[Rfam]
RNA sequence: AGGAGUAGCAAAUAAAUGGGUGAGAAUCCCAUCCGCCGCAUGUGCAAGGGUUCCUUGUUUUAAGAUUAUCUAACAAGGGUUAGUCGGUCCUAAGUUUUGCGUCGAAAGGUGCAAGGCAAAUGGGAAUGCGUUUAAUAUUACGCAACCACGGCGGUUUUACCGUUUAUUACGCGUUGAGAUAAGUGGAGUGGUCCAGUCAGAUUAUAUAUAGAUGCGAUGCAUUCGAGAGACGUAAUGUCGAGAAGAUGCAGAAGCGUUUAUAAUGUAGCAAUACAUCCAUUGAUUCCCGGCGCCCAUGAAAAUGUAAACGUUAUGAACCGAAGUGACCGUACCGAAAACUGACACAGGUGCACUGGCUGAGAAGGCUAAGGCGA
Number, nucleotide and partner (000 for none) at each position: 001a000002g000003g000004a000005g000006u000007a000008g000009c000010a000011a000012a000013u000014a000015a000016a032017u031018g030019g029020g028021u000022g000023a000024g000025a000026a000027u000028c020029c019030c018031a017032u016033c000034c373035g372036c371037c370038g000039c000040a000041u000042g353043u352044g351045c350046a000047a000048g333049g332050g000051u000052u000053c078054c077055u076056u075057g074058u073059u000060u000061u000062a000063a071064g070065a000066u000067u000068a000069u000070c064071u063072a000073a058074c057075a056076a055077g054078g053079g000080u000081u000082a000083g000084u000085c329086g328087g327088u000089c123090c122091u000092a000093a000094g117095u116096u115097u114098u113099g112100c000101g000102u108103c000104g000105a000106a000107a000108g102109g000110u000111g000112c099113a098114a097115g096116g095117c094118a000119a000120a000121u000122g090123g089124g000125a000126a000127u144128g143129c142130g141131u140132u000133u000134a000135a000136u000137a000138u000139u000140a131141c130142g129143c128144a127145a000146c000147c325148a324149c323150g000151g000152c320153g319154g318155u000156u000157u000158u000159a000160c000161c000162g000163u000164u000165u000166a000167u000168u000169a000170c000171g293172c292173g291174u290175u289176g288177a000178g286179a285180u000181a000182a281183g280184u279185g278186g277187a000188g205189u204190g203191g202192u201193c000194c000195a000196g000197u000198c000199a000200g000201a192202u191203u190204a189205u188206a000207u000208a000209u000210a258211g257212a000213u000214g000215c000216g000217a000218u000219g249220c248221a247222u246223u245224c000225g000226a000227g000228a000229g239230a238231c237232g000233u000234a000235a000236u000237g231238u230239c229240g000241a000242g000243a000244a000245g223246a222247u221248g220249c219250a000251g000252a000253a000254g000255c000256g000257u211258u210259u000260a000261u000262a000263a000264u000265g000266u000267a000268g000269c000270a000271a000272u000273a000274c000275a000276u000277c186278c185279a184280u183281u182282g000283a000284u000285u179286c178287c000288c176289g175290g174291c173292g172293c171294c000295c000296a000297u000298g000299a000300a000301a000302a000303u000304g000305u000306a000307a000308a000309c000310g000311u000312u000313a000314u000315g000316a000317a000318c154319c153320g152321a000322a000323g149324u148325g147326a000327c087328c086329g085330u000331a000332c049333c048334g000335a000336a000337a000338a000339c348340u347341g000342a000343c000344a000345c000346a000347g340348g339349u000350g045351c044352a043353c042354u368355g367356g366357c365358u000359g000360a000361g000362a000363a000364g000365g357366c356367u355368a354369a000370g037371g036372c035373g034374a000
The record is a 374-nucleotide part of an RNA from Candidatus Parvarchaeum acidiphilum, which matches "Archaeal large subunit ribosomal RNA" in Rfam. The family has 91 seed sequences and 2,955 matches in Rfam 15.1.